RNA sequence: UUAGGACUCGUUCUCUUGAAACGAGUGGCUAUUCUGGCCGCCAACCCGCCAGACAACC
Dot-bracket structure: .....((((((.(....)..))))))......((((((.........)))))).....
The family of this 58-nucleotide RNA sequence from Terasakiella brassicae is "sul1 RNA". Taxonomically the source falls in Terasakiella (Bacteria, Pseudomonadati, Rhodospirillales, Terasakiellaceae). The family has 54 seed sequences and 519 matches in Rfam 15.1.